[Rfam]
RNA sequence: GAAGUCCCAUCUCAGUAAGGACUAACCAUCCGCUGGGUUCUCGAGCUAUGCGCUGAGUGUGGGUAACUGCAUUAGUGAAGUGUUAGUAGAGGCAUCUGUAGGCUAAGUAUUGAGCCACGAAAUUCAGUUUGGAAGUGGAGAUGUUGUUAAGCGAAGCAGAAUCCAAUAGUGACAAGAGCGUAAUUUGGUGAGUUCUUGGGCACACUUCCCGGGGUCGGAGACCU
Numbered sequence: 001g002a003a004g005u006c007c008c009a010u011c012u013c014a015g016u017a018a019g020g021a022c023u024a025a026c027c028a029u030c031c032g033c034u035g036g037g038u039u040c041u042c043g044a045g046c047u048a049u050g051c052g053c054u055g056a057g058u059g060u061g062g063g064u065a066a067c068u069g070c071a072u073u074a075g076u077g078a079a080g081u082g083u084u085a086g087u088a089g090a091g092g093c094a095u096c097u098g099u100a101g102g103c104u105a106a107g108u109a110u111u112g113a114g115c116c117a118c119g120a121a122a123u124u125c126a127g128u129u130u131g132g133a134a135g136u137g138g139a140g141a142u143g144u145u146g147u148u149a150a151g152c153g154a155a156g157c158a159g160a161a162u163c164c165a166a167u168a169g170u171g172a173c174a175a176g177a178g179c180g181u182a183a184u185u186u187g188g189u190g191a192g193u194u195c196u197u198g199g200g201c202a203c204a205c206u207u208c209c210c211g212g213g214g215u216c217g218g219a220g221a222c223c224u
Stems, first nucleotide, its partner, number of pairs: 011037005019031003023191001025189002039092004045087004049082002051077004056073007111218001112216001114215003118211002131209006137164003142158004169203003173198007
RNA: Group II catalytic intron D1-D4-6